Small nucleolar RNA snoR2/U65: a 149-nucleotide sequence from Actinidia chinensis. The match comes from Rfam's covariance-model search (108 bits). The literature on the family includes a 1998 paper in J Cell Sci by Shaw et al., "Localization and processing from a polycistronic precursor of novel snoRNAs in maize".
RNA sequence: GGUCUGAUGCCACGUUGUUGGGAGCGAUACGGCGAUGAUCGGCGAUGCUAUGAUUAGACCAAAAUAGAUCUCAUGUUUCGCAUUUUGAUAGGAAUCUAUGGAUCAACUCAUCCUGUUCGUUCACGGAGCCGUUUACUGCAAUUACAUUU
Numbered sequence: 001g002g003u004c005u006g007a008u009g010c011c012a013c014g015u016u017g018u019u020g021g022g023a024g025c026g027a028u029a030c031g032g033c034g035a036u037g038a039u040c041g042g043c044g045a046u047g048c049u050a051u052g053a054u055u056a057g058a059c060c061a062a063a064a065u066a067g068a069u070c071u072c073a074u075g076u077u078u079c080g081c082a083u084u085u086u087g088a089u090a091g092g093a094a095u096c097u098a099u100g101g102a103u104c105a106a107c108u109c110a111u112c113c114u115g116u117u118c119g120u121u122c123a124c125g126g127a128g129c130c131g132u133u134u135a136c137u138g139c140a141a142u143u144a145c146a147u148u149u
Base pairs, nucleotide, nucleotide: 002059003058004057005056006055007054008053009051013047014046015045016044017043018042020040021039024033025032078141080139081138082137091130092129096126097125100122101121102120103119

The organism belongs to Actinidia chinensis, within Eukaryota.